[Rfam]
RNA sequence: UCGGCGGCGCACGACUGGCGUCGGGUGGUCAACCACCGGGGAGUGCAAGCGAGUCGGCAUCGCACGCCUGGGUGCCCCUC
Numbered sequence: 001u002c003g004g005c006g007g008c009g010c011a012c013g014a015c016u017g018g019c020g021u022c023g024g025g026u027g028g029u030c031a032a033c034c035a036c037c038g039g040g041g042a043g044u045g046c047a048a049g050c051g052a053g054u055c056g057g058c059a060u061c062g063c064a065c066g067c068c069u070g071g072g073u074g075c076c077c078c079u080c
Stems, first nucleotide, its partner, number of pairs: 004050002009046004015040002017068005025036004057075005